Rfam assigns this 370-nucleotide RNA sequence from Coriobacterium glomerans to the family "Bacterial RNase P class A". Taxonomically the source falls in Coriobacterium glomerans (Bacteria, Bacillati, Actinomycetota, Coriobacteriaceae). Gene Ontology terms of the family: ribonuclease P activity, tRNA processing and dimeric ribonuclease P complex. The family's consensus secondary structure is taken from published work. On this family, see Frank and Pace, Annu Rev Biochem 1998: "Ribonuclease P: unity and diversity in a tRNA processing ribozyme". It scores 271 bits against the family's covariance model.
[Rfam]
RNA sequence: GAAGCGGGCCAGACGAUCGCGCGCGGCUGAGCGAGAUCUCACCGCGUGAGGAAAGUCCGGGCUCCACAGGGUAGGAUGCUGGCUAACGGCCAGGCGGGGCGACCCGACGGAAAGUGCCGCAGAAAAGAAGACUCCCACCGACCGGCCCUUUGGCCGCGCCAAGGGAAAAGCUGAAACGGUGGUGCAAGAGACCACCAGCAUCGCGGCGACGCGAUGGCUUGGCAAACCCCAUCCGGAGCAAGCGCAAAUAGGGGCGCUAUGGUGUGACCCGCACCGCGCUCGGGUAGCGUGCACAGAGCUGCGUGGCAACGCGCACGCCAAGAUAAAUGAUCGUCCGCGACAGAACCCGGCUUAUCGGCCCACUUCGCAU
Dot-bracket structure: ((((.(((((((((((((.(((((((...............)))))))....[[[.[[[[[((((...[[[[.((((((((((.....)))))(((((....)))).)((...(((((.............((.((...(.(...............).)...))...)).......((((((.......)))))).((((((((....))))))).)..)))..)))))))))))))...((((......((((((...(((((.]]]]))))))))))).....)))).......((((((((....)))))).))..........)))))))..........]]]]]]]].).))))).))))....